A member of the RNA family "Alphaproteobacterial sRNA ar45" from Afipia sp. GAS231, 241 nucleotides long.

[Rfam]
RNA sequence: GCCCAAUUUCGCACGUGCCUGUGGUCGUGUGUCAGUCGGUAGGUAUCCGGACAAGAGGCCGGACAGCCGCCAAGGGAUGAAGAACCGAGGGUCCUCCUCAUUGGAUGGCCAGCAUCUCUCUCAAGAGAUGCCGUUGAAGGUCUCUUCAUCUGUUGCAACCGUGACUGGCAGCCGGAGGCGAACCGGCGCACCCCGCUCUCAACGGGGGACGCGACUUAAAGCAACGACGGAUCGGGCUUUU
Numbered sequence: 001g002c003c004c005a006a007u008u009u010c011g012c013a014c015g016u017g018c019c020u021g022u023g024g025u026c027g028u029g030u031g032u033c034a035g036u037c038g039g040u041a042g043g044u045a046u047c048c049g050g051a052c053a054a055g056a057g058g059c060c061g062g063a064c065a066g067c068c069g070c071c072a073a074g075g076g077a078u079g080a081a082g083a084a085c086c087g088a089g090g091g092u093c094c095u096c097c098u099c100a101u102u103g104g105a106u107g108g109c110c111a112g113c114a115u116c117u118c119u120c121u122c123a124a125g126a127g128a129u130g131c132c133g134u135u136g137a138a139g140g141u142c143u144c145u146u147c148a149u150c151u152g153u154u155g156c157a158a159c160c161g162u163g164a165c166u167g168g169c170a171g172c173c174g175g176a177g178g179c180g181a182a183c184c185g186g187c188g189c190a191c192c193c194c195g196c197u198c199u200c201a202a203c204g205g206g207g208g209a210c211g212c213g214a215c216u217u218a219a220a221g222c223a224a225c226g227a228c229g230g231a232u233c234g235g236g237c238u239u240u241u
Base pairs, nucleotide, nucleotide: 001237002236003235004234009227010226011225016223017222018221023216024215025214026213027212028211029210030209038071039070040069042067046063047062048061049060050059079096080095082093083092097208098207099206
Dot-bracket structure: ((((....(((....(((....((((((((.......(((.(...(((((........)))))...).))).......((.((........)).))(((..........................................................................................................)))))))))))....))).)))......))))....

About this RNA: The organism belongs to Afipia, within Bacteria. The family's RNA type in Rfam is small RNA. The base pairs follow the family's consensus structure.